The record is a 175-nucleotide RNA sequence from Kocuria soli, which matches "c-di-AMP riboswitch aptamer (ydaO/yuaA leader)" in Rfam.
[Rfam]
RNA sequence: CCGGUGAAGAUCCCGAACACGGACAUGGCAGGAGCGAGGGACCCACUUCUGUGGCCCGAACCUCAUGGAGGUCGGACCUUGGGGUGAAGCCGAGGCGGUCCACCCACUGAGCCUCGGCCGGUUUACUCCGAACCGAACCCGACAGCUCACCCCGCAGGCACUCUGGAGGAAAAAC
Dot-bracket structure: ..........(.((.....(..........)..(((.((....((..................................))(((.....(((((((..............)))))))..((((.......))))...))).........)).))).)).)...............